[Rfam]
RNA sequence: ACAGAAAAGGGCAAACCUGUUGAAAAACGGGGACGCAAAGUCACGGGUCUAAGGUGGGAGAAGACUGCUAGGAUGGCCGGACUGCCUGGA
Numbered sequence: 001a002c003a004g005a006a007a008a009g010g011g012c013a014a015a016c017c018u019g020u021u022g023a024a025a026a027a028c029g030g031g032g033a034c035g036c037a038a039a040g041u042c043a044c045g046g047g048u049c050u051a052a053g054g055u056g057g058g059a060g061a062a063g064a065c066u067g068c069u070a071g072g073a074u075g076g077c078c079g080g081a082c083u084g085c086c087u088g089g090a
Stems, first nucleotide, its partner, number of pairs: 003087002011036002016031006034076001039083004044079003047074003
Shown here is a 90-nucleotide RNA sequence from Bacillus sp. T33-2, a member of the family "c-di-GMP-I-GGC riboswitch aptamer". Rfam 15.1 lists 1,298 matches to the family in 717 species.